[Rfam]
RNA sequence: UACGUUCAUCCAAUGGGACGGAAGUAGGGAAACCGAAGGAACGCACU
Dot-bracket structure: ..(((((.(((....)))..[.....((....))....)))))]...
Numbered sequence: 001u002a003c004g005u006u007c008a009u010c011c012a013a014u015g016g017g018a019c020g021g022a023a024g025u026a027g028g029g030a031a032a033c034c035g036a037a038g039g040a041a042c043g044c045a046c047u
Stems, first nucleotide, its partner, number of pairs: 003043005009018003021044001027034002
The record is a 47-nucleotide RNA sequence, which matches "Glutamine riboswitch aptamer (glnA leader)" in Rfam. For this family Rfam cites "Bacterial aptamers that selectively bind glutamine" (Ames and Breaker, RNA Biol, 2011). It is one of the family's seed sequences. Rfam links the family to the GO term glutamine binding.